[Rfam]
RNA sequence: UAAAUGCUCGGCACAUGAUUUCGUAUAUCCUCAAUGAUAUGGUUUGAGGGUCUCUACAAGGAACCGUAAAAUCCUGGCUACGAUAGGUAUGUUUCGUAUA
Numbered sequence: 001u002a003a004a005u006g007c008u009c010g011g012c013a014c015a016u017g018a019u020u021u022c023g024u025a026u027a028u029c030c031u032c033a034a035u036g037a038u039a040u041g042g043u044u045u046g047a048g049g050g051u052c053u054c055u056a057c058a059a060g061g062a063a064c065c066g067u068a069a070a071a072u073c074c075u076g077g078c079u080a081c082g083a084u085a086g087g088u089a090u091g092u093u094u095c096g097u098a099u100a
Stems, first nucleotide, its partner, number of pairs: 019085001021083005029049006059075004
A member of the RNA family "Purine riboswitch aptamer" from Paenibacillus lutimineralis, 100 nucleotides long.
The base pairs follow the family's consensus structure, which is taken from published work.